RNA sequence: CUGGGCUACGGAGACAUGUACCCUAAGACCUGGUCUGGCAUGCUGGUGGGCGCGCUCUGCGCUCUCUCUGGGGUGCUGACCAUCGCCAUGCCUGUGCCGGUCAUAGUCAACAAU
Numbered sequence: 001c002u003g004g005g006c007u008a009c010g011g012a013g014a015c016a017u018g019u020a021c022c023c024u025a026a027g028a029c030c031u032g033g034u035c036u037g038g039c040a041u042g043c044u045g046g047u048g049g050g051c052g053c054g055c056u057c058u059g060c061g062c063u064c065u066c067u068c069u070g071g072g073g074u075g076c077u078g079a080c081c082a083u084c085g086c087c088a089u090g091c092c093u094g095u096g097c098c099g100g101u102c103a104u105a106g107u108c109a110a111c112a113a114u
Stems, first nucleotide, its partner, number of pairs: 002113001004111001008107002011104001013102003018097004037077004049063003
This 114-nucleotide RNA sequence from Acipenser ruthenus belongs to the Rfam family "Potassium channel RNA editing signal". On this family, see Bhalla et al., Nat Struct Mol Biol 2004: "Control of human potassium channel inactivation by editing of a small mRNA hairpin". The organism belongs to Acipenser, within Eukaryota. The family's RNA type in Rfam is cis-regulatory element.